Overview:
A member of the RNA family "Small nucleolar RNA SNORA15" from Oncorhynchus kisutch, 138 nucleotides long. Gene Ontology terms of the family: RNA processing and nucleolus. ACA15 is a member of the H/ACA class of snoRNA that guide the sites of modification of uridines to pseudouridines. A search with the family's covariance model found it, with a score of 66 bits.
[Rfam]
RNA sequence: GCAUGGAUGAAUUCUGUGUUACUCUUGUCAGUAGUAAAAUCAGUCAGACACCAUGCAAAAGCAUAUUUUCACUCCUACUUUACUUAAUGUGAGUGCUGUCCUGUGCCUCACCUAUUCAGUGGAGGAGUGAUUACAAUU
Numbered sequence: 001g002c003a004u005g006g007a008u009g010a011a012u013u014c015u016g017u018g019u020u021a022c023u024c025u026u027g028u029c030a031g032u033a034g035u036a037a038a039a040u041c042a043g044u045c046a047g048a049c050a051c052c053a054u055g056c057a058a059a060a061g062c063a064u065a066u067u068u069u070c071a072c073u074c075c076u077a078c079u080u081u082a083c084u085u086a087a088u089g090u091g092a093g094u095g096c097u098g099u100c101c102u103g104u105g106c107c108u109c110a111c112c113u114a115u116u117c118a119g120u121g122g123a124g125g126a127g128u129g130a131u132u133a134c135a136a137u138u
Stems, first nucleotide, its partner, number of pairs: 001056006014043003019038001069130002072127005078121001082120003086116004091111001